[Rfam]
Nucleotides: 107
Base pairs, nucleotide, nucleotide: 005098007096008095009094010093012090013089017084018083024038026036027035028034039060040059043055044054045053065079066078067077068076069075
Number, partner (000 for none) and nucleotide at each position: 001000u002000u003000a004000g005098u006000c007096u008095a009094u010093g011000g012090g013089g014000g015000u016000a017084c018083a019000a020000u021000u022000c023000u024038u025000g026036a027035a028034g029000g030000g031000u032000a033000a034028c035027u036026u037000a038024a039060g040059u041000a042000c043055u044054a045053a046000u047000u048000u049000a050000a051000u052000u053045u054044u055043a056000c057000a058000u059040g060039c061000c062000c063000u064000u065079a066078u067077g068076u069075a070000a071000u072000u073000c074000g075069u076068g077067c078066a079065u080000u081000a082000c083018u084017g085000c086000u087000a088000g089013c090012c091000a092000a093010c094009a095008u096007g097000a098005a099000u100000a101000u102000u103000a104000u105000a106000u107000a
Mitochondrial DNA control region secondary structure A: a 107-nucleotide RNA from Piliocolobus tephrosceles. The organism belongs to Piliocolobus, within Eukaryota. The literature on the family includes a 2008 paper in Mol Biol Evol by Pereira et al., "Evidence for variable selective pressures at a large secondary structure of the human mitochondrial DNA control region". The family's RNA type in Rfam is antisense RNA.